[Rfam]
RNA sequence: UAUUGGUCCCUUCGCGGCGAUAGAUUGUGAACCCCGUCAGGCCCGGAAGGGAGCAGCGGUAACAAUUGAUUCGAGCGCCGAAGUGUGGCUCUUAGAG
Numbered sequence: 001u002a003u004u005g006g007u008c009c010c011u012u013c014g015c016g017g018c019g020a021u022a023g024a025u026u027g028u029g030a031a032c033c034c035c036g037u038c039a040g041g042c043c044c045g046g047a048a049g050g051g052a053g054c055a056g057c058g059g060u061a062a063c064a065a066u067u068g069a070u071u072c073g074a075g076c077g078c079c080g081a082a083g084u085g086u087g088g089c090u091c092u093u094a095g096a097g
Base pairs, nucleotide, nucleotide: 005090006089007088008087010083011082012081013080014079015075018073019072020071023067024066025065026064027063028062034059035058036057037056042051043050044049
RNA: Bacterial small signal recognition particle RNA
Organism: Legionella drancourtii